A member of the RNA family "Archaeal small subunit ribosomal RNA" from Candidatus Nanobsidianus stetteri, 600 nucleotides of a longer RNA. NCBI's taxonomy places the organism under Archaea, Nanobdellati, Nanobdellota, Candidatus Nanoarchaeia, Candidatus Nanobsidianus. Rfam links the family to the GO terms structural constituent of ribosome and ribosome.
RNA sequence: AGGCGGGGGGGCACACAAGGGGUGGGGUGUGCGGGUUAAUGGGACCCAACACCGGAAACCUUACCGGGAGCGACAGCAGGAUGAUGGUCAGGCUGAAGACCUUACCGGACACGCUGAGAGGAGGUGCAUGGCUGCCGUCAGCUCGUGCCGUGAGGUAUCCUGUUAAGUCAGGAAACGAGCGCGACCCGCACCCGUAGUUACGACGGAGAGGAUUUCCUCUCCGGUACACUACGGGGACUGCCGGGGAAACCCGGAGGAAGGCGCGGGCGACGGCAAGUCCGCAUGCCCCUAAUCUCCCGGGCUACACGCGCGCAACAAUGGGCGGGACAAUGGGAACCGACCCCGAAAGGGGAAGGAAAUCCCAGAAACCCGCUCUCAGUCCAGAUUGAGGGCUGUAACUCGCCCUCAUGACGGUGGAAUCCCUAGUAAUCGGGGGUCACUAUUCCCCCGGUGAAUACGUCCCUGCCCCUUGCACUCACCGCCCGUCAAGCCAACCGAGUCGUUUCCUGGUGAGGCCCGUUAAAGCGGGUCGAACCGGGAAACGGCGAGGGGGGCUAAGUCGUCACAAGGUAGCCGUAGGGGAACCUGCGGCUGGAUCUA
Numbered sequence: 001a002g003g004c005g006g007g008g009g010g011g012c013a014c015a016c017a018a019g020g021g022g023u024g025g026g027g028u029g030u031g032c033g034g035g036u037u038a039a040u041g042g043g044a045c046c047c048a049a050c051a052c053c054g055g056a057a058a059c060c061u062u063a064c065c066g067g068g069a070g071c072g073a074c075a076g077c078a079g080g081a082u083g084a085u086g087g088u089c090a091g092g093c094u095g096a097a098g099a100c101c102u103u104a105c106c107g108g109a110c111a112c113g114c115u116g117a118g119a120g121g122a123g124g125u126g127c128a129u130g131g132c133u134g135c136c137g138u139c140a141g142c143u144c145g146u147g148c149c150g151u152g153a154g155g156u157a158u159c160c161u162g163u164u165a166a167g168u169c170a171g172g173a174a175a176c177g178a179g180c181g182c183g184a185c186c187c188g189c190a191c192c193c194g195u196a197g198u199u200a201c202g203a204c205g206g207a208g209a210g211g212a213u214u215u216c217c218u219c220u221c222c223g224g225u226a227c228a229c230u231a232c233g234g235g236g237a238c239u240g241c242c243g244g245g246g247a248a249a250c251c252c253g254g255a256g257g258a259a260g261g262c263g264c265g266g267g268c269g270a271c272g273g274c275a276a277g278u279c280c281g282c283a284u285g286c287c288c289c290u291a292a293u294c295u296c297c298c299g300g301g302c303u304a305c306a307c308g309c310g311c312g313c314a315a316c317a318a319u320g321g322g323c324g325g326g327a328c329a330a331u332g333g334g335a336a337c338c339g340a341c342c343c344c345g346a347a348a349g350g351g352g353a354a355g356g357a358a359a360u361c362c363c364a365g366a367a368a369c370c371c372g373c374u375c376u377c378a379g380u381c382c383a384g385a386u387u388g389a390g391g392g393c394u395g396u397a398a399c400u401c402g403c404c405c406u407c408a409u410g411a412c413g414g415u416g417g418a419a420u421c422c423c424u425a426g427u428a429a430u431c432g433g434g435g436g437u438c439a440c441u442a443u444u445c446c447c448c449c450g451g452u453g454a455a456u457a458c459g460u461c462c463c464u465g466c467c468c469c470u471u472g473c474a475c476u477c478a479c480c481g482c483c484c485g486u487c488a489a490g491c492c493a494a495c496c497g498a499g500u501c502g503u504u505u506c507c508u509g510g511u512g513a514g515g516c517c518c519g520u521u522a523a524a525g526c527g528g529g530u531c532g533a534a535c536c537g538g539g540a541a542a543c544g545g546c547g548a549g550g551g552g553g554g555c556u557a558a559g560u561c562g563u564c565a566c567a568a569g570g571u572a573g574c575c576g577u578a579g580g581g582g583a584a585c586c587u588g589c590g591g592c593u594g595g596a597u598c599u600a
Base pairs, nucleotide, nucleotide: 001476002475003473004472005471007470008469009468010467011466012465013464015460016459019423020422021421022420023419024316027313028312029311030310031309032308033307034305040055042053043052064300065299066298067297068296069295070294074116075115076114077113079110086106087105088104090102091101092100120289121288123287124286125285126284129283130282131278132277133276134274135273136272137271141180142179143178144177145176146175147156148155149154159172160171161170162169186266187265188264189263191235192234193233194232195231196230197229201224205222206221207220208219209218210217211216238257239256241254242253243252244251245250320375321374322373323372324371325370326369332363333362334361337356338355341352342351343350344349382413387408388407389406390405391404392403393402429452430451431450432449433448434447435446436445479569481566484562485561487559489556490555491554492553495550496549499546500545501544502543503542504541505540506539507538508537509536510535511534514531515530516529517528518527519526520525571594572593573592574591575590576589577588578587579586580585